[Rfam]
RNA sequence: GCGCGGGGACGGCCCCGCAUUCCCAUCACAACCGGUAGGGACGGCCCUG
Numbered sequence: 001g002c003g004c005g006g007g008g009a010c011g012g013c014c015c016c017g018c019a020u021u022c023c024c025a026u027c028a029c030a031a032c033c034g035g036u037a038g039g040g041a042c043g044g045c046c047c048u049g
Stems, first nucleotide, its partner, number of pairs: 001020001003018006036049005
Guanidine-II riboswitch aptamer (mini-ykkC): a 49-nucleotide RNA from Rhizobiales bacterium GAS113.
Rfam's curators write: Simpler in structure and has fewer highly conserved nucleotide positions than the ykkC-yxkD leader.